RNA sequence: GAAAAGGGAGUUCAUCUCUAAUUUUUCUCCAUUUUUUUCGGAGGGAAAUUAGAAUCGUUGGUGGAUGUGUUCUGCUAGAACAGCUACUUGAUUUUCUCUCUGUCCUAGACUCUGAACACGUUUAGAAUCGCUAUCAAGAGAUUCUGAACUCAUAAUUUUUGGAACCGUGCGAGGUAGCUGCUUCAAAAUUCACUUGAAUGUAUAGCGCCUCGCCC
Numbered sequence: 001g002a003a004a005a006g007g008g009a010g011u012u013c014a015u016c017u018c019u020a021a022u023u024u025u026u027c028u029c030c031a032u033u034u035u036u037u038u039c040g041g042a043g044g045g046a047a048a049u050u051a052g053a054a055u056c057g058u059u060g061g062u063g064g065a066u067g068u069g070u071u072c073u074g075c076u077a078g079a080a081c082a083g084c085u086a087c088u089u090g091a092u093u094u095u096c097u098c099u100c101u102g103u104c105c106u107a108g109a110c111u112c113u114g115a116a117c118a119c120g121u122u123u124a125g126a127a128u129c130g131c132u133a134u135c136a137a138g139a140g141a142u143u144c145u146g147a148a149c150u151c152a153u154a155a156u157u158u159u160u161g162g163a164a165c166c167g168u169g170c171g172a173g174g175u176a177g178c179u180g181c182u183u184c185a186a187a188a189u190u191c192a193c194u195u196g197a198a199u200g201u202a203u204a205g206c207g208c209c210u211c212g213c214c215c
Stems, first nucleotide, its partner, number of pairs: 008151005013063004064122009074112001123146007169213004174209001177208002180206003